RNA sequence: UAGGCGGUUCCCGAAAGGCCUUAAAAGAGUAGGGG
Number, nucleotide and partner (000 for none) at each position: 001u000002a021003g020004g019005c018006g000007g000008u000009u000010c034011c033012c032013g000014a000015a000016a000017g000018g005019c004020c003021u002022u000023a000024a000025a000026a000027g000028a000029g000030u000031a000032g012033g011034g010035g000